[Rfam]
RNA sequence: AAAAACUUGUCGGGGUGCCCGUUUGCAUUUUCAAAUGUGGCUGAGAUGAAACCCGUUGAACCUGAAGAGGUUAAGACCUCCGUAGGAAACAAGCCGGUAUUUUCG
Numbered sequence: 001a002a003a004a005a006c007u008u009g010u011c012g013g014g015g016u017g018c019c020c021g022u023u024u025g026c027a028u029u030u031u032c033a034a035a036u037g038u039g040g041c042u043g044a045g046a047u048g049a050a051a052c053c054c055g056u057u058g059a060a061c062c063u064g065a066a067g068a069g070g071u072u073a074a075g076a077c078c079u080c081c082g083u084a085g086g087a088a089a090c091a092a093g094c095c096g097g098u099a100u101u102u103u104c105g
Base pairs, nucleotide, nucleotide: 006093007092008091009090010089011055012054013053014052016049017041018040019039061086062085063084064083067080068079069078070077
RNA: TPP riboswitch aptamer (THI element)